[Rfam]
RNA sequence: UGAGUGUGAAAGAUAAUCGCGGGUGUUUUUUAACAUCUGAGGAAAGUCCGGGCUCCACAGGGCAAAUAUGCCGGAUAACGUCCGGCGAGGGUGACCUUAGGGACAGUGCUAUAGAAAUUUAAACCGCCUGGCAACAGGUAAGGAUGGAAAGGUGCGGUAAGAGCGCACCAGCAUAUAGGUAACUAUAUGGCUUUGGUAAACCCCAUAUGGAGCAAGACCGAAUAGGGAAGGGAUGAGGCGGCCCGCUGAUCCUUCCGGGUUGUGUCGCUUGAAUUGAUGGGCAACUAUCAAUCUAGAUAAAUGAUUAUCACCGCCACGCGGAUACAGAACUCGGCUUAUUGAUCACUCAUAAC
Numbered sequence: 001u002g003a004g005u006g007u008g009a010a011a012g013a014u015a016a017u018c019g020c021g022g023g024u025g026u027u028u029u030u031u032a033a034c035a036u037c038u039g040a041g042g043a044a045a046g047u048c049c050g051g052g053c054u055c056c057a058c059a060g061g062g063c064a065a066a067u068a069u070g071c072c073g074g075a076u077a078a079c080g081u082c083c084g085g086c087g088a089g090g091g092u093g094a095c096c097u098u099a100g101g102g103a104c105a106g107u108g109c110u111a112u113a114g115a116a117a118u119u120u121a122a123a124c125c126g127c128c129u130g131g132c133a134a135c136a137g138g139u140a141a142g143g144a145u146g147g148a149a150a151g152g153u154g155c156g157g158u159a160a161g162a163g164c165g166c167a168c169c170a171g172c173a174u175a176u177a178g179g180u181a182a183c184u185a186u187a188u189g190g191c192u193u194u195g196g197u198a199a200a201c202c203c204c205a206u207a208u209g210g211a212g213c214a215a216g217a218c219c220g221a222a223u224a225g226g227g228a229a230g231g232g233a234u235g236a237g238g239c240g241g242c243c244c245g246c247u248g249a250u251c252c253u254u255c256c257g258g259g260u261u262g263u264g265u266c267g268c269u270u271g272a273a274u275u276g277a278u279g280g281g282c283a284a285c286u287a288u289c290a291a292u293c294u295a296g297a298u299a300a301a302u303g304a305u306u307a308u309c310a311c312c313g314c315c316a317c318g319c320g321g322a323u324a325c326a327g328a329a330c331u332c333g334g335c336u337u338a339u340u341g342a343u344c345a346c347u348c349a350u351a352a353c
Stems, first nucleotide, its partner, number of pairs: 001349006010340002012309007020039008044337003048334005053212004061244002066208005071085005086100001087098004101203002106201002108197003124143002126139005151169006170192001172189007216266003219262001226256006237247003273292008
RNA: Bacterial RNase P class A